[Rfam]
RNA sequence: CUGCGUCCGACCACGUACGGGGCCCGUCCACGUCCGCCUCGGCGGCCGGAUGCAAGGGCCCGCGAUGGCACGGUAGGGUGAGUGGGAGCACGCUCAUG
Numbered sequence: 001c002u003g004c005g006u007c008c009g010a011c012c013a014c015g016u017a018c019g020g021g022g023c024c025c026g027u028c029c030a031c032g033u034c035c036g037c038c039u040c041g042g043c044g045g046c047c048g049g050a051u052g053c054a055a056g057g058g059c060c061c062g063c064g065a066u067g068g069c070a071c072g073g074u075a076g077g078g079u080g081a082g083u084g085g086g087a088g089c090a091c092g093c094u095c096a097u098g
Stems, first nucleotide, its partner, number of pairs: 014064003020061006026051003034045004
Dot-bracket structure: .............(((...(((((((((.....((((....))))...)))....)))))))))..................................
Shown here is a 98-nucleotide RNA, a member of the family "malK-III RNA". It is one of the family's seed sequences. Rfam classes the family as a cis-regulatory element.